This 99-nucleotide RNA sequence from Dorea formicigenerans belongs to the Rfam family "SAM riboswitch aptamer (S box leader)".

[Rfam]
RNA sequence: CUCUUAUUCAGAGCAGUGGAGGUACAAAGGACCUGUGAAGCUGCGGCAACCCCCGGUUCGGGAAGGUGCCGACCUGAGCGAGUAAUCGAACAAUAAGAG
Numbered sequence: 001c002u003c004u005u006a007u008u009c010a011g012a013g014c015a016g017u018g019g020a021g022g023u024a025c026a027a028a029g030g031a032c033c034u035g036u037g038a039a040g041c042u043g044c045g046g047c048a049a050c051c052c053c054c055g056g057u058u059c060g061g062g063a064a065g066g067u068g069c070c071g072a073c074c075u076g077a078g079c080g081a082g083u084a085a086u087c088g089a090a091c092a093a094u095a096a097g098a099g
Stems, first nucleotide, its partner, number of pairs: 001099008013044005021033003030075001045070004050066002052062004079088003
About this RNA: The sequence is in the family's curated seed alignment. The SAM riboswitch is found upstream of a number of genes which code for proteins involved in methionine or cysteine biosynthesis in Gram-positive bacteria. NCBI's taxonomy places the organism under Bacteria, Clostridia, Lachnospiraceae, Dorea, Dorea formicigenerans.